Rfam assigns this 73-nucleotide RNA from Orthoflavivirus zikaense to the family "Dengue virus SLA".
[Rfam]
RNA sequence: AGUUGUUGAUCUGUGUGAAUCAGACUGCGACAGUUCGAGUUUGAAGCGAAAGCUAGCAACAGUAUCAACAGGU
Numbered sequence: 001a002g003u004u005g006u007u008g009a010u011c012u013g014u015g016u017g018a019a020u021c022a023g024a025c026u027g028c029g030a031c032a033g034u035u036c037g038a039g040u041u042u043g044a045a046g047c048g049a050a051a052g053c054u055a056g057c058a059a060c061a062g063u064a065u066c067a068a069c070a071g072g073u
Stems, first nucleotide, its partner, number of pairs: 001073001003071007011062004020044002023042002028037003046054001
Pairs were carried over by alignment from the consensus structure, which is taken from published work. It is annotated as a cis-regulatory element. About the family: Flavivirus stem-loop A (SLA) is a secondary structure present in the 5 prime untranslated (5'-UTR) region of viruses of the genus Flavivirus. The source organism's lineage runs through Viruses, Kitrinoviricota, Flasuviricetes, Orthoflavivirus and Orthoflavivirus zikaense.